U4atac minor spliceosomal RNA: a 118-nucleotide RNA from Odontophorus gujanensis.
RNA sequence: ACCGUCCUUAUCUUGGGGUUGCGCGGCCGCUCGAUGAACGCGUGGUGAGAGCGGCACUGCUAACGCCUGAGCAACACGCACAGCGCCCGCGUCCGCGCGCGGCGCAAUUUUUGGAACC
Numbered sequence: 001a002c003c004g005u006c007c008u009u010a011u012c013u014u015g016g017g018g019u020u021g022c023g024c025g026g027c028c029g030c031u032c033g034a035u036g037a038a039c040g041c042g043u044g045g046u047g048a049g050a051g052c053g054g055c056a057c058u059g060c061u062a063a064c065g066c067c068u069g070a071g072c073a074a075c076a077c078g079c080a081c082a083g084c085g086c087c088c089g090c091g092u093c094c095g096c097g098c099g100c101g102g103c104g105c106a107a108u109u110u111u112u113g114g115a116a117c118c
Stems, first nucleotide, its partner, number of pairs: 006018004021060003026055007038046002083105005088099001091098001
Notes:
The match comes from Rfam's covariance-model search (87 bits). Rfam classes the family as a spliceosomal small nuclear RNA. Lineage of the source: Eukaryota > Archelosauria > Archosauria > Dinosauria > Odontophorus.